[Rfam]
RNA sequence: AGCCAUGUGGUGAAUACAGAGCGAACUAUUCUUUCGCCUUUUACUAAAGAAUACCGUGUGUUCUCCACGCUUAGUGGCAUACGCUUAUUUUUGGAAGGUUCCGCAUUCGUGUGGGCCC
Numbered sequence: 001a002g003c004c005a006u007g008u009g010g011u012g013a014a015u016a017c018a019g020a021g022c023g024a025a026c027u028a029u030u031c032u033u034u035c036g037c038c039u040u041u042u043a044c045u046a047a048a049g050a051a052u053a054c055c056g057u058g059u060g061u062u063c064u065c066c067a068c069g070c071u072u073a074g075u076g077g078c079a080u081a082c083g084c085u086u087a088u089u090u091u092u093g094g095a096a097g098g099u100u101c102c103g104c105a106u107u108c109g110u111g112u113g114g115g116c117c118c
Stems, first nucleotide, its partner, number of pairs: 003077004008067003012063007027053008097117005
Rfam assigns this 118-nucleotide RNA sequence from Raphanus sativus to the family "U5 spliceosomal RNA". Rfam classes the family as a spliceosomal small nuclear RNA. About the family: U5 RNA is a component of both types of known spliceosome. The base pairs follow the family's consensus structure, which is taken from published work.